RNA sequence: GCAGCAGGCCGCCUUAUCGCUGCCGAAGUUAAUUCGGGAGAGGAAAGUCCGGACACCAUAGGGAAGCAUAGCGGCUAACGGCCGUCGGGAUUUCUGCCUUCGCAGGAAUUUUAGGACAAGUGCAGCAGAAAGUAUGUACAGGUAAUGCUGUAGUGAAACCAGGUAAACUCUAUGCGGUGAAAUGCCACGUAAACCUGUGCUUGAGGGUGCCCGCCCGAUGCAGGAGGGUAGGCAGAUGGAGUGUUUUGGUAACGAAAUACCUAGAUAAAUGAUAAGGAUUCGUCUUUUUGAUGGAUACAGAACCCGGCUUAUAGGCCUGCUUUUUUU
Numbered sequence: 001g002c003a004g005c006a007g008g009c010c011g012c013c014u015u016a017u018c019g020c021u022g023c024c025g026a027a028g029u030u031a032a033u034u035c036g037g038g039a040g041a042g043g044a045a046a047g048u049c050c051g052g053a054c055a056c057c058a059u060a061g062g063g064a065a066g067c068a069u070a071g072c073g074g075c076u077a078a079c080g081g082c083c084g085u086c087g088g089g090a091u092u093u094c095u096g097c098c099u100u101c102g103c104a105g106g107a108a109u110u111u112u113a114g115g116a117c118a119a120g121u122g123c124a125g126c127a128g129a130a131a132g133u134a135u136g137u138a139c140a141g142g143u144a145a146u147g148c149u150g151u152a153g154u155g156a157a158a159c160c161a162g163g164u165a166a167a168c169u170c171u172a173u174g175c176g177g178u179g180a181a182a183u184g185c186c187a188c189g190u191a192a193a194c195c196u197g198u199g200c201u202u203g204a205g206g207g208u209g210c211c212c213g214c215c216c217g218a219u220g221c222a223g224g225a226g227g228g229u230a231g232g233c234a235g236a237u238g239g240a241g242u243g244u245u246u247u248g249g250u251a252a253c254g255a256a257a258u259a260c261c262u263a264g265a266u267a268a269a270u271g272a273u274a275a276g277g278a279u280u281c282g283u284c285u286u287u288u289u290g291a292u293g294g295a296u297a298c299a300g301a302a303c304c305c306g307g308c309u310u311a312u313a314g315g316c317c318u319g320c321u322u323u324u325u326u327u
Stems, first nucleotide, its partner, number of pairs: 001323001003321008011312001012277007020040002023037005045310003049307004054179004061212003066175005071085005086114001087112011115170002120168002122164002137152005183234004194224005205216004241260008
Dot-bracket structure: (.((((((((((((((((.((.(((((.....))))).))....[[[.[[[[.((((...[[[..((((((((((.....)))))((((((((((((....))))))))))).)((...((((.............(((((......)))))..........))..)))))))))))))...((((.......(((((......((((.]]]))))...)))))......))))......((((((((....))))))))..........)))))))..........................]]]]]]].).)))))))).)....